[Rfam]
RNA sequence: CAGGAUCGAACGGGAGAGUCGGCGACACGCCGGCGCCGAAGGAGCAACCGCCCCGGAAACUCUCAGGCCAAAGGACCGUUCGAUCGGC
Numbered sequence: 001c002a003g004g005a006u007c008g009a010a011c012g013g014g015a016g017a018g019u020c021g022g023c024g025a026c027a028c029g030c031c032g033g034c035g036c037c038g039a040a041g042g043a044g045c046a047a048c049c050g051c052c053c054c055g056g057a058a059a060c061u062c063u064c065a066g067g068c069c070a071a072a073g074g075a076c077c078g079u080u081c082g083a084u085c086g087g088c
Base pairs, nucleotide, nucleotide: 006083007082008081009080010079011078012077013076019033020032021031022030035068036067037066038064039063042062043061044060048056049055
A member of the RNA family "Glycine riboswitch aptamer" from Histidinibacterium lentulum, 88 nucleotides long.
The source organism's lineage runs through Bacteria, Pseudomonadati, Alphaproteobacteria, Paracoccaceae and Histidinibacterium.